This 89-nucleotide RNA sequence from Denticeps clupeoides belongs to the Rfam family "mir-15 microRNA precursor family". Taxonomically the source falls in Denticeps (Eukaryota, Vertebrata, Clupeiformes, Denticipitoidei). About the family: This family represents the related mir-15a and mir-15b sequences. In humans miR-15a and miR-16 are clustered within 0.5 kb at 13q14. This region has been shown to be deleted in more than half of B cell chronic lymphocytic leukaemias (CLL). Its family is annotated with RISC complex and miRNA-mediated post-transcriptional gene silencing in the Gene Ontology. The family is grouped with related families in Rfam's "mir-15 clan".
[Rfam]
RNA sequence: GGCUGCUCUGCUGUAGCAGCACGUAAAUAUUGGAGUUACUCCGCGGCAGAAGCCUCCAAUAUUGAUUGUGCUGCUGAAGCAAGGCGGGC
Numbered sequence: 001g002g003c004u005g006c007u008c009u010g011c012u013g014u015a016g017c018a019g020c021a022c023g024u025a026a027a028u029a030u031u032g033g034a035g036u037u038a039c040u041c042c043g044c045g046g047c048a049g050a051a052g053c054c055u056c057c058a059a060u061a062u063u064g065a066u067u068g069u070g071c072u073g074c075u076g077a078a079g080c081a082a083g084g085c086g087g088g089c
Stems, first nucleotide, its partner, number of pairs: 001089001003087004014076010024065001026063010